[Rfam]
RNA sequence: GCGAGCACUAACUAACCCCACACACGUAUCGGCACGGUAUCCUGGGUGCCCGCAAGGGUUGGAUAUCGGGAUGCGUGGAGGCCUAAC
Numbered sequence: 001g002c003g004a005g006c007a008c009u010a011a012c013u014a015a016c017c018c019c020a021c022a023c024a025c026g027u028a029u030c031g032g033c034a035c036g037g038u039a040u041c042c043u044g045g046g047u048g049c050c051c052g053c054a055a056g057g058g059u060u061g062g063a064u065a066u067c068g069g070g071a072u073g074c075g076u077g078g079a080g081g082c083c084u085a086a087c
Stems, first nucleotide, its partner, number of pairs: 023077008035068008048059004
RNA: t44 RNA
Organism: Azotobacter chroococcum